[Rfam]
RNA sequence: CAACAGCCGUGCCAGUAUUCCAAAUCUGUUUAAAAAACGAGCUGGACAGCCUGGACGCGCGUCAAUCUUCACCAAUACUCAAAGUUACUGGUGUGCGGCACCUCCCCCCAAGUGCCCCGUCAGGCAAGGUACCGUGGACUGCGUACCUUGAUUUACUCCUAAUGGUCUUGACCCGGAUUCAUCCCCCAGAACCCGG
Numbered sequence: 001c002a003a004c005a006g007c008c009g010u011g012c013c014a015g016u017a018u019u020c021c022a023a024a025u026c027u028g029u030u031u032a033a034a035a036a037a038c039g040a041g042c043u044g045g046a047c048a049g050c051c052u053g054g055a056c057g058c059g060c061g062u063c064a065a066u067c068u069u070c071a072c073c074a075a076u077a078c079u080c081a082a083a084g085u086u087a088c089u090g091g092u093g094u095g096c097g098g099c100a101c102c103u104c105c106c107c108c109c110a111a112g113u114g115c116c117c118c119g120u121c122a123g124g125c126a127a128g129g130u131a132c133c134g135u136g137g138a139c140u141g142c143g144u145a146c147c148u149u150g151a152u153u154u155a156c157u158c159c160u161a162a163u164g165g166u167c168u169u170g171a172c173c174c175g176g177a178u179u180c181a182u183c184c185c186c187c188a189g190a191a192c193c194c195g196g
Base pairs, nucleotide, nucleotide: 039167040166042164088123089122090121094119095118097116099114100113101112125150126149127148128147129146130145131144132143133141173196174195175194176193178191179190180189
RNA: RgsA sRNA
Organism: Zestomonas carbonaria